[Rfam]
RNA sequence: UAAAGGUGAUAUAAAAACACAUUGCAGUUGGUAGUCUGCAAACAUCUUGAUGAUGUCAGUAACCUUCCCUCCAGGUCGUCCUUUAUCACAUUUAUCAUU
Number, nucleotide and partner (000 for none) at each position: 001u000002a000003a000004a091005g000006g089007u088008g087009a086010u085011a084012u000013a000014a000015a000016a000017a000018c000019a000020c000021a000022u041023u040024g039025c038026a037027g036028u000029u000030g000031g000032u000033a000034g000035u000036c027037u026038g025039c024040a023041a022042a056043c055044a054045u053046c052047u000048u000049g000050a000051u000052g046053a045054u044055g043056u042057c000058a000059g000060u000061a000062a000063c000064c000065u000066u000067c075068c074069c000070u000071c000072c000073a000074g068075g067076u000077c000078g000079u000080c000081c000082u000083u000084u011085a010086u009087c008088a007089c006090a000091u004092u000093u000094a000095u000096c000097a000098u000099u000

The record is a 99-nucleotide RNA from Streptococcus ferus, which matches "azaaromatic riboswitch aptamer (yjdF RNA)" in Rfam. The base pairs follow the family's consensus structure, which is taken from published work. NCBI's taxonomy places the organism under Bacteria, Bacillota, Lactobacillales, Streptococcaceae, Streptococcus.